RNA sequence: CGACCGGCUCACUCUAAGUAUGAACGCCAAGCGUAUUGCAUAAAGCUUGGUGUUCUACCUUACAGUGAACUGUACG
Numbered sequence: 001c002g003a004c005c006g007g008c009u010c011a012c013u014c015u016a017a018g019u020a021u022g023a024a025c026g027c028c029a030a031g032c033g034u035a036u037u038g039c040a041u042a043a044a045g046c047u048u049g050g051u052g053u054u055c056u057a058c059c060u061u062a063c064a065g066u067g068a069a070c071u072g073u074a075c076g
Base pairs, nucleotide, nucleotide: 006071007070009068010067011066012065013064015062016061017060025052026051027050028049029048030047031046032045
RNA: mir-971 microRNA precursor family